[Rfam]
Lysine riboswitch aptamer: a 172-nucleotide sequence from Sellimonas intestinalis.

RNA sequence: GAAGAAGAUAGAGGCGCGGGAUUCAUCAGUAUGCUCUGGACAGACGGACGUACCAUCCGCAGAGCAGAAAGGGGAAACCGCCGAAGGAAGUGAAGGAGGACGUAACUUUGCUUUCUGGGAUGUUGUAGAAGAUACAGCAUACUGUCACAGAUUGUGGAGCGCUAUCGUGGAA
Numbered sequence: 001g002a003a004g005a006a007g008a009u010a011g012a013g014g015c016g017c018g019g020g021a022u023u024c025a026u027c028a029g030u031a032u033g034c035u036c037u038g039g040a041c042a043g044a045c046g047g048a049c050g051u052a053c054c055a056u057c058c059g060c061a062g063a064g065c066a067g068a069a070a071g072g073g074g075a076a077a078c079c080g081c082c083g084a085a086g087g088a089a090g091u092g093a094a095g096g097a098g099g100a101c102g103u104a105a106c107u108u109u110g111c112u113u114u115c116u117g118g119g120a121u122g123u124u125g126u127a128g129a130a131g132a133u134a135c136a137g138c139a140u141a142c143u144g145u146c147a148c149a150g151a152u153u154g155u156g157g158a159g160c161g162c163u164a165u166c167g168u169g170g171a172a
Stems, first nucleotide, its partner, number of pairs: 007166005016081004022075003032066007085116011117143002120140008145157005
Pairs were carried over by alignment from the consensus structure, which is taken from published work. Lineage of the source: Bacteria > Bacillati > Bacillota > Clostridia > Sellimonas.